[Rfam]
RNA sequence: UUAAAUGUUUUCUAGGGUUCCGCAACUCUACCAUGUUGGUCUGGUCCGAGAGAAAACUCAUAGUAAACUACUAUGUCACGGAGGGAUAAAAGCCCGGGAGAA
Number, nucleotide and partner (000 for none) at each position: 001u000002u000003a000004a000005a000006u000007g057008u056009u055010u054011u053012c052013u000014a000015g047016g046017g000018u000019u000020c044021c043022g041023c038024a037025a036026c035027u000028c000029u000030a000031c000032c000033a000034u000035g026036u025037u024038g023039g000040u000041c022042u000043g021044g020045u000046c016047c015048g000049a000050g000051a000052g012053a011054a010055a009056a008057c007058u000059c075060a074061u073062a072063g071064u070065a069066a000067a000068c000069u065070a064071c063072u062073a061074u060075g059076u000077c097078a000079c100080g000081g000082a000083g095084g094085g093086a000087u000088a000089a000090a000091a000092g000093c085094c084095c083096g000097g077098g000099a000100g079101a000102a000
The record is a 102-nucleotide RNA from Bacilli bacterium VT-13-104, which matches "Guanidine-I riboswitch aptamer" in Rfam. Pairs were carried over by alignment from the consensus structure. It scores 88 bits against the family's covariance model. Taxonomically the source falls in Bacilli (Bacteria, Bacillati, Bacillota).